This 320-nucleotide part of an RNA from Oryctes borbonicus belongs to the Rfam family "Eukaryotic large subunit ribosomal RNA". Pairs were carried over by alignment from the consensus structure, which is taken from published work. The literature on the family includes a 2001 paper in Science by Yusupov et al., "Crystal structure of the ribosome at 5.5 A resolution". Lineage of the source: Eukaryota > Arthropoda > Neuropteroidea > Dynastinae > Oryctes.
RNA sequence: GAGUCUAGCAUGUGCGCGAGUCAUUGGGACUCGAACGAAACCUAAAGGCGUAAUGAAAGUGAAGGUUCGCCUCGCGCGAACCGAGGGAGGAUGGUCGAUCGUUCGAGGUCGUCCCGCACUCCCUGGGCGUCUCGUUCUCAUCGCGAGAAGAGGCGCACCAAGAGCGUACACGCUGGGACCCGAAAGAUGGUGAACUAUGCCUGGUCAGGACGAAGUCAGGGGAAACCCUGAUGGAGGUCCGUAGCGAUUCUGACGUGCAAAUCGAUCGUCGGAACUGGGUAUAGGGGCGAAAGACUAAUCGAACCAUCUAGUAGCUGGUU
Numbered sequence: 001g002a003g004u005c006u007a008g009c010a011u012g013u014g015c016g017c018g019a020g021u022c023a024u025u026g027g028g029a030c031u032c033g034a035a036c037g038a039a040a041c042c043u044a045a046a047g048g049c050g051u052a053a054u055g056a057a058a059g060u061g062a063a064g065g066u067u068c069g070c071c072u073c074g075c076g077c078g079a080a081c082c083g084a085g086g087g088a089g090g091a092u093g094g095u096c097g098a099u100c101g102u103u104c105g106a107g108g109u110c111g112u113c114c115c116g117c118a119c120u121c122c123c124u125g126g127g128c129g130u131c132u133c134g135u136u137c138u139c140a141u142c143g144c145g146a147g148a149a150g151a152g153g154c155g156c157a158c159c160a161a162g163a164g165c166g167u168a169c170a171c172g173c174u175g176g177g178a179c180c181c182g183a184a185a186g187a188u189g190g191u192g193a194a195c196u197a198u199g200c201c202u203g204g205u206c207a208g209g210a211c212g213a214a215g216u217c218a219g220g221g222g223a224a225a226c227c228c229u230g231a232u233g234g235a236g237g238u239c240c241g242u243a244g245c246g247a248u249u250c251u252g253a254c255g256u257g258c259a260a261a262u263c264g265a266u267c268g269u270c271g272g273a274a275c276u277g278g279g280u281a282u283a284g285g286g287g288c289g290a291a292a293g294a295c296u297a298a299u300c301g302a303a304c305c306a307u308c309u310a311g312u313a314g315c316u317g318g319u320u
Stems, first nucleotide, its partner, number of pairs: 005176005011170007020049003025044004053060002085123005093114002125159002127156003130152001132150001136146002179318002182315001186308006195284011206272001208240004215232007244269004249265002252263002286296002